[Rfam]
RNA: PreQ1 (pre queuosine) riboswitch aptamer
Organism: Caldibacillus thermoamylovorans
RNA sequence: UUGUCCGUGGUUCGAAACCAUCCCACGUAAAAAAACUAAGGAAAG
Numbered sequence: 001u002u003g004u005c006c007g008u009g010g011u012u013c014g015a016a017a018c019c020a021u022c023c024c025a026c027g028u029a030a031a032a033a034a035a036c037u038a039a040g041g042a043a044a045g
Base pairs, nucleotide, nucleotide: 006027007026008025009024010023016037